[Rfam]
The family of this 109-nucleotide RNA sequence from Ipomoea nil is "MIR397 microRNA precursor family". It scores 58 bits against the family's covariance model. On this family, see Wu et al., Plant Cell 2009: "Rice MicroRNA effector complexes and targets". Its family is annotated with RISC complex and miRNA-mediated post-transcriptional gene silencing in the Gene Ontology. Taxonomically the source falls in Ipomoea (Eukaryota, Embryophyta, Tracheophyta, asterids).
RNA sequence: CUUAAAGACAUUAUUGAGUGCAGCGUUGAUGAGAAUGGGAAUGGGAAUGGGCACGCCAAUCUCCUCUCCAUUAUAAUUCUCACCGGCACUGCACUCAACCAUGUUUUAA
Numbered sequence: 001c002u003u004a005a006a007g008a009c010a011u012u013a014u015u016g017a018g019u020g021c022a023g024c025g026u027u028g029a030u031g032a033g034a035a036u037g038g039g040a041a042u043g044g045g046a047a048u049g050g051g052c053a054c055g056c057c058a059a060u061c062u063c064c065u066c067u068c069c070a071u072u073a074u075a076a077u078u079c080u081c082a083c084c085g086g087c088a089c090u091g092c093a094c095u096c097a098a099c100c101a102u103g104u105u106u107u108a109a
Base pairs, nucleotide, nucleotide: 006106007105008104009103010102011101014098015097016096017095018094019093020092021091022090023089025087026086027085028084030082031081032080033079034078035077036076